Bacterial RNase P class A: a 378-nucleotide RNA from Mobiluncus curtisii.

RNA sequence: AAAGCCGGGCAGGUAGUCGCGGGCGAGUCAUUCGAUAAGCUCGAGGAAAGUCCGGACUCCACAGGGCAGGGUGAUGGCUAACGGCCACCAGGGGCGACCCUCGGGACAGUGCCACAGAAAGCGAAACCGCCCCACCGGGCUUAUGCACGGUGAGGUAAGGGUGAAAAGGUGAGGUAAGAGCUCACCGCGCGGCUGGUGACAGUCGUGGCAGGGUAAACCCCACCCGGAGCAAGGCCAAGCAGCAGGCUGGGCGGCCCGUUCAAAGCCUGCGGGUAGGCUGCUAGAGAGGUCGGGUAACUGGCCUUCCAGAGAAAUGGCUACCGGCGCGCGGCGGCAACAAAGCGCGUUACAGAAUCCGGCUUACGCCCGGCUUUUCCG
Numbered sequence: 001a002a003a004g005c006c007g008g009g010c011a012g013g014u015a016g017u018c019g020c021g022g023g024c025g026a027g028u029c030a031u032u033c034g035a036u037a038a039g040c041u042c043g044a045g046g047a048a049a050g051u052c053c054g055g056a057c058u059c060c061a062c063a064g065g066g067c068a069g070g071g072u073g074a075u076g077g078c079u080a081a082c083g084g085c086c087a088c089c090a091g092g093g094g095c096g097a098c099c100c101u102c103g104g105g106a107c108a109g110u111g112c113c114a115c116a117g118a119a120a121g122c123g124a125a126a127c128c129g130c131c132c133c134a135c136c137g138g139g140c141u142u143a144u145g146c147a148c149g150g151u152g153a154g155g156u157a158a159g160g161g162u163g164a165a166a167a168g169g170u171g172a173g174g175u176a177a178g179a180g181c182u183c184a185c186c187g188c189g190c191g192g193c194u195g196g197u198g199a200c201a202g203u204c205g206u207g208g209c210a211g212g213g214u215a216a217a218c219c220c221c222a223c224c225c226g227g228a229g230c231a232a233g234g235c236c237a238a239g240c241a242g243c244a245g246g247c248u249g250g251g252c253g254g255c256c257c258g259u260u261c262a263a264a265g266c267c268u269g270c271g272g273g274u275a276g277g278c279u280g281c282u283a284g285a286g287a288g289g290u291c292g293g294g295u296a297a298c299u300g301g302c303c304u305u306c307c308a309g310a311g312a313a314a315u316g317g318c319u320a321c322c323g324g325c326g327c328g329c330g331g332c333g334g335c336a337a338c339a340a341a342g343c344g345c346g347u348u349a350c351a352g353a354a355u356c357c358g359g360c361u362u363a364c365g366c367c368c369g370g371c372u373u374u375u376c377c378g
Stems, first nucleotide, its partner, number of pairs: 001374010012322007020043005027036002048362003052359005057229004064257004069225005075087004089103001090101004104220002109218002111214003127160002129156003133152005168186006187209001188207008233279004242270006248262005286305008

The organism belongs to Mobiluncus curtisii, within Bacteria. By type it is a ribozyme. Ribonuclease P (RNase P) is a ubiquitous endoribonuclease, found in archaea, bacteria and eukarya as well as chloroplasts and mitochondria. Its best characterised activity is the generation of mature 5'-ends of tRNAs by cleaving the 5'-leader elements of precursor-tRNAs. The literature on the family includes a 1999 paper in Nucleic Acids Res by Brown, "The Ribonuclease P Database".